[Rfam]
RNA sequence: UACCAAGGCUUUUUGUCAGGGCAUCCUAUCGGUGUGUUACACAUUAUUCAUAUAGCCUGCCUGUUAUAACUUUGGAACAUUAAUACCUAUCGCCCAGUCGGUGAUAUUCGUUUUGAUUAUCAUUGACUACCGCAAUCUUUCGUUUUGAAAGGGCAACUAGAUAGAUUUUGGAGCUUUGGAGUUGAACUUUGCCGAAUGCUUAUCUUCUUUCAGUAGAGUAUAAGGCAUCAUUCUCAUGGUUAAGUUCGUAGUUAAGAGCCAAACAAUU
Numbered sequence: 001u002a003c004c005a006a007g008g009c010u011u012u013u014u015g016u017c018a019g020g021g022c023a024u025c026c027u028a029u030c031g032g033u034g035u036g037u038u039a040c041a042c043a044u045u046a047u048u049c050a051u052a053u054a055g056c057c058u059g060c061c062u063g064u065u066a067u068a069a070c071u072u073u074g075g076a077a078c079a080u081u082a083a084u085a086c087c088u089a090u091c092g093c094c095c096a097g098u099c100g101g102u103g104a105u106a107u108u109c110g111u112u113u114u115g116a117u118u119a120u121c122a123u124u125g126a127c128u129a130c131c132g133c134a135a136u137c138u139u140u141c142g143u144u145u146u147g148a149a150a151g152g153g154c155a156a157c158u159a160g161a162u163a164g165a166u167u168u169u170g171g172a173g174c175u176u177u178g179g180a181g182u183u184g185a186a187c188u189u190u191g192c193c194g195a196a197u198g199c200u201u202a203u204c205u206u207c208u209u210u211c212a213g214u215a216g217a218g219u220a221u222a223a224g225g226c227a228u229c230a231u232u233c234u235c236a237u238g239g240u241u242a243a244g245u246u247c248g249u250a251g252u253u254a255a256g257a258g259c260c261a262a263a264c265a266a267u268u
Stems, first nucleotide, its partner, number of pairs: 003075005019062005026055004032042004087164005095132001097130002100127001103121004108116002136152007168262004174256003183248005191240003196231003199225003
RNA: Small nucleolar RNA snR191
Organism: Brettanomyces bruxellensis